The family of this 57-nucleotide sequence from Ignavigranum ruoffiae is "Ribosomal protein L13 leader". The literature on the family includes a 1994 paper in Prog Nucleic Acid Res Mol Biol by Zengel and Lindahl, "Diverse mechanisms for regulating ribosomal protein synthesis in Escherichia coli". This family is a putative r-protein leader autoregulatory structure found in B. subtilis and other low-GC Gram-positive bacteria. It is located in the 5' untranslated regions of mRNAs encoding the L13-S9 (rplM-rpsI) ribosomal protein operon. By type it is a cis-regulatory leader. Its family is annotated with regulation of gene expression in the Gene Ontology.

RNA sequence: GGUAUUGUUUACCCCACUAUAGAGCCCCGGAAACUCAAUAGUUACCGUAAACAAGAA
Numbered sequence: 001g002g003u004a005u006u007g008u009u010u011a012c013c014c015c016a017c018u019a020u021a022g023a024g025c026c027c028c029g030g031a032a033a034c035u036c037a038a039u040a041g042u043u044a045c046c047g048u049a050a051a052c053a054a055g056a057a
Stems, first nucleotide, its partner, number of pairs: 006053007016042005022036003